RNA sequence: UGCUGAGCCCCGCGGCGCCACCCGACCCCCGACUCGGUAGCGCCGCGGGGCGUUCCA
Numbered sequence: 001u002g003c004u005g006a007g008c009c010c011c012g013c014g015g016c017g018c019c020a021c022c023c024g025a026c027c028c029c030c031g032a033c034u035c036g037g038u039a040g041c042g043c044c045g046c047g048g049g050g051c052g053u054u055c056c057a
Stems, first nucleotide, its partner, number of pairs: 002056001005053001007051012020038003
Dot-bracket structure: .(..(.((((((((((((.(((.............))).)))))))))))).)..).
The family of this 57-nucleotide RNA sequence is "F6 TB sRNA". A reference for the family is Arnvig and Young (2009), "Identification of small RNAs in Mycobacterium tuberculosis", Mol Microbiol. A search with the family's covariance model found it, with a score of 48 bits.